[Rfam]
RNA sequence: GAACAGGAGUUCUAGGGUUCCGGCCCCUCAGGGGGCGACUGGUCCAAGAGAGCUCCACCGGCCCAUGCCGGAGCACGGAGGGACAAAAGCCCGGGAGAC
Numbered sequence: 001g002a003a004c005a006g007g008a009g010u011u012c013u014a015g016g017g018u019u020c021c022g023g024c025c026c027c028u029c030a031g032g033g034g035g036c037g038a039c040u041g042g043u044c045c046a047a048g049a050g051a052g053c054u055c056c057a058c059c060g061g062c063c064c065a066u067g068c069c070g071g072a073g074c075a076c077g078g079a080g081g082g083a084c085a086a087a088a089g090c091c092c093g094g095g096a097g098a099c
Stems, first nucleotide, its partner, number of pairs: 007055006015045002020042002022039001023036005058071005074094001076097001080092003
RNA: Guanidine-I riboswitch aptamer
Organism: Synechococcus sp. CBW1004